[Rfam]
RNA sequence: UGGAUAUGAUGACUGAUUAUCUGAAAUGCUGAUGAAACUGUUGUGGAAAUCCUCUAGAUAGUCAAGUGCUGAUCCAG
Number, nucleotide and partner (000 for none) at each position: 001u076002g075003g074004a073005u000006a000007u000008g000009a000010u000011g000012a000013c000014u000015g000016a000017u000018u000019a000020u000021c000022u000023g000024a000025a000026a000027u000028g000029c000030u000031g000032a000033u000034g000035a000036a000037a000038c000039u000040g000041u000042u000043g000044u000045g000046g000047a000048a000049a000050u000051c000052c000053u000054c000055u000056a000057g000058a000059u000060a000061g000062u000063c000064a000065a000066g000067u000068g000069c000070u000071g000072a000073u004074c003075c002076a001077g000
The record is a 77-nucleotide RNA sequence from Apaloderma vittatum, which matches "Small nucleolar RNA SNORD20" in Rfam. U20 is a C/D box small nucleolar RNA that is encoded in intron 11 of the nucleolin gene in human, mouse and rat. Its family is annotated with nucleolus and RNA processing in the Gene Ontology. A reference for the family is Nicoloso et al. (1994), "U20, a novel small nucleolar RNA, is encoded in an intron of the nucleolin gene in mammals", Mol Cell Biol. The family's RNA type in Rfam is C/D-box small nucleolar RNA. It scores 82 bits against the family's covariance model.